[Rfam]
RNA sequence: CGCUUUCAGGUUGCAGCCUGAUUAGUCCGCAAGGAUAACUCAGGCUGAUGGCUGGUGACUGAUUGGUCACCAGCCU
Numbered sequence: 001c002g003c004u005u006u007c008a009g010g011u012u013g014c015a016g017c018c019u020g021a022u023u024a025g026u027c028c029g030c031a032a033g034g035a036u037a038a039c040u041c042a043g044g045c046u047g048a049u050g051g052c053u054g055g056u057g058a059c060u061g062a063u064u065g066g067u068c069a070c071c072a073g074c075c076u
Stems, first nucleotide, its partner, number of pairs: 014047008050075010
Rfam assigns this 76-nucleotide RNA sequence from Erwinia mallotivora to the family "Pseudomonas sRNA P26". Rfam's curators write: This small RNA (sRNA) was computationally identified in the genome of the opportunistic pathogen Pseudomonas aeruginosa and its expression verified by northern blot analysis. P26 is conserved across many Gammaproteobacteria species and appears to be consistently located between the DNA directed RNA polymerase (beta subunit) and 50S ribosomal protein L7/L12 genes. For this family Rfam cites "Identification of 17 Pseudomonas aeruginosa sRNAs and prediction of sRNA-encoding genes in 10 diverse pathogens using the bioinformatic tool sRNAPredict2" (Livny et al., Nucleic Acids Res, 2006). Lineage of the source: Bacteria > Pseudomonadati > Pseudomonadota > Gammaproteobacteria > Erwinia. It is annotated as a non-coding RNA gene.